[Rfam]
RNA sequence: CGAGUCGACUGGAUGGUCGCUCCGCAUAGCGGGGAGGAAAGUCCGGGCUCCAUAGGGCAGAGUGCCAGGUAACGCCUGGGGGGCGCGAGCCUACGGCCAGUGCAACAGAGAGUAGACCGCCUAAGCUGCCUAGCAGCCGGUAAGGGUGAAAGGGUGCGGUAAGAGCGCACCGCGCAGCUGGUAACAGUUUGUGGCACGGUAAACCCCACUCGGAGCAAGAUCAAAUAGGGGAACAUUGGCGCGGCCCGCGUCGUUCCCGGGUAGAUCGCACGAGGUGCGCGGUGACGCGCAUCCCAGAUGAAUGACUGUCCACGACAGAACCCGGCUUAUAGGUUGGCUCAUCGA
Numbered sequence: 001c002g003a004g005u006c007g008a009c010u011g012g013a014u015g016g017u018c019g020c021u022c023c024g025c026a027u028a029g030c031g032g033g034g035a036g037g038a039a040a041g042u043c044c045g046g047g048c049u050c051c052a053u054a055g056g057g058c059a060g061a062g063u064g065c066c067a068g069g070u071a072a073c074g075c076c077u078g079g080g081g082g083g084c085g086c087g088a089g090c091c092u093a094c095g096g097c098c099a100g101u102g103c104a105a106c107a108g109a110g111a112g113u114a115g116a117c118c119g120c121c122u123a124a125g126c127u128g129c130c131u132a133g134c135a136g137c138c139g140g141u142a143a144g145g146g147u148g149a150a151a152g153g154g155u156g157c158g159g160u161a162a163g164a165g166c167g168c169a170c171c172g173c174g175c176a177g178c179u180g181g182u183a184a185c186a187g188u189u190u191g192u193g194g195c196a197c198g199g200u201a202a203a204c205c206c207c208a209c210u211c212g213g214a215g216c217a218a219g220a221u222c223a224a225a226u227a228g229g230g231g232a233a234c235a236u237u238g239g240c241g242c243g244g245c246c247c248g249c250g251u252c253g254u255u256c257c258c259g260g261g262u263a264g265a266u267c268g269c270a271c272g273a274g275g276u277g278c279g280c281g282g283u284g285a286c287g288c289g290c291a292u293c294c295c296a297g298a299u300g301a302a303u304g305a306c307u308g309u310c311c312a313c314g315a316c317a318g319a320a321c322c323c324g325g326c327u328u329a330u331a332g333g334u335u336g337g338c339u340c341a342u343c344g345a
Base pairs, nucleotide, nucleotide: 002340003339004338005337006336007335008334009333010332011330012310013309014308015307016306017305018304020034021033022032023031024030025029039328040327041326043325044324045323046322047321048215049214050213051212055247056246057245058244060211061210062209063208064207065079066078067077068076069075080094081092082091083090084089095206096205100204101203102200103199117145118144119141120140121139125137126136127135128134129133153171154170155169156168157167158166172195173193174192175191176190177189178187179186180185219267220266221265222264229258230257231256232255233254234253238252239251240250241249242248274293275292276291277290278289279288280287281286
Dot-bracket structure: .(((((((((((((((((.((((((...))))))....[[[.[[[[[((((...[[[[.((((((((((.....)))))(((((....)))).)((...((((.............(((((...(((((...))))).)))..)).......((((((.......))))))(((((((((....))).))))).)...))..)))))))))))))...((((......((((((...(((((.]]]]))))))))))).....))))......((((((((....))))))))..........)))))))..........]]]]]]]].).))))))))).....
The family of this 345-nucleotide RNA from gamma proteobacterium HTCC5015 is "Bacterial RNase P class A". By type it is a ribozyme. Ribonuclease P (RNase P) is a ubiquitous endoribonuclease, found in archaea, bacteria and eukarya as well as chloroplasts and mitochondria. Lineage of the source: Bacteria > Pseudomonadati > Pseudomonadota > Gammaproteobacteria.